The record is a 127-nucleotide sequence from Mytilus edulis, which matches "U11 spliceosomal RNA" in Rfam. The base pairs follow the family's consensus structure, which is taken from published work. Rfam classes the family as a spliceosomal small nuclear RNA. The source organism's lineage runs through Eukaryota, Opisthokonta, Mollusca, Bivalvia and Mytilus.
[Rfam]
RNA sequence: UAAAAGGGCCUUUACCAUGUGUGGUACUCAGAAUCUAACGAUUCUGGGCGGAAUCACUAUCAGGAGAUUUCGGAGGCAUAAUUUCUUUACUCGGUGGCAGUUGGUACUCAAUAGGUCCGGCGCCCCA
Numbered sequence: 001u002a003a004a005a006g007g008g009c010c011u012u013u014a015c016c017a018u019g020u021g022u023g024g025u026a027c028u029c030a031g032a033a034u035c036u037a038a039c040g041a042u043u044c045u046g047g048g049c050g051g052a053a054u055c056a057c058u059a060u061c062a063g064g065a066g067a068u069u070u071c072g073g074a075g076g077c078a079u080a081a082u083u084u085c086u087u088u089a090c091u092c093g094g095u096g097g098c099a100g101u102u103g104g105u106a107c108u109c110a111a112u113a114g115g116u117c118c119g120g121c122g123c124c125c126c127a
Base pairs, nucleotide, nucleotide: 008077009076010075011074012073013026014025015024016023017022027048028047029046030045031044032043033042034041035040049072050071051070052069053068054067055066096124097123098122100121101120102119103118104117106116107115108114